[Rfam]
RNA: TD-2 RNA
Organism: Treponema phagedenis
RNA sequence: ACUGCCACAGAUGGCAGUGGUUCCACGCAGAAACGAUGUUUUAAAGCAAGACGGUUUUGCAAAGCUUUAAAACUCGAGGGUUUGGUUUUGCCACGGACGGCAAAACCAAACCUUGG
Dot-bracket structure: ((((((......))))))...............(((.((((((((((................)))))))))))))..((((((((((((((......))))))))))))))....